[Rfam]
RNA: Plastid-ccsA-ndhD-2 3UTR RNA
Organism: Dipteronia sinensis
RNA sequence: CGAGAACCUUUUGAAUCAAGUAGUGGAGUGAUUCAAAAGGUUCUCA
Number, nucleotide and partner (000 for none) at each position: 001c000002g045003a044004g043005a042006a041007c040008c039009u038010u037011u036012u035013g034014a033015a032016u031017c030018a029019a000020g000021u000022a000023g000024u000025g000026g000027a000028g000029u018030g017031a016032u015033u014034c013035a012036a011037a010038a009039g008040g007041u006042u005043c004044u003045c002046a000